This 143-nucleotide RNA belongs to the Rfam family "IMES-2 RNA motif".
For this family Rfam cites "Exceptional structured noncoding RNAs revealed by bacterial metagenome analysis" (Weinberg et al., Nature, 2009).
By type it is a non-coding RNA gene.

RNA sequence: AAGUGACUUAAGAGGCAACUCUUAACUGGCCAGGUAAGGAAAAGCCGAGAGGUUCAAGCUUACAGGGCAGAAAGCCCCGCAGAGUAGCGCUAAACAUAGUGGGGCGGCGGGAUCGGCGGUAGCGCCUUACAACGACGAUCCAU
Numbered sequence: 001a002a003g004u005g006a007c008u009u010a011a012g013a014g015g016c017a018a019c020u021c022u023u024a025a026c027u028g029g030c031c032a033g034g035u036a037a038g039g040a041a042a043a044g045c046c047g048a049g050a051g052g053u054u055c056a057a058g059c060u061u062a063c064a065g066g067g068c069a070g071a072a073a074g075c076c077c078c079g080c081a082g083a084g085u086a087g088c089g090c091u092a093a094a095c096a097u098a099g100u101g102g103g104g105c106g107g108c109g110g111g112a113u114c115g116g117c118g119g120u121a122g123c124g125c126c127u128u129a130c131a132a133c134g135a136c137g138a139u140c141c142a143u
Base pairs, nucleotide, nucleotide: 008025009024010023011022012021013020014019026070027069028068030067031066034063035062036061037060038059043054044053045052046051074105075104076103077102078101079100080099087125088124089123090122091121110141111140112139113138114137115136117134118133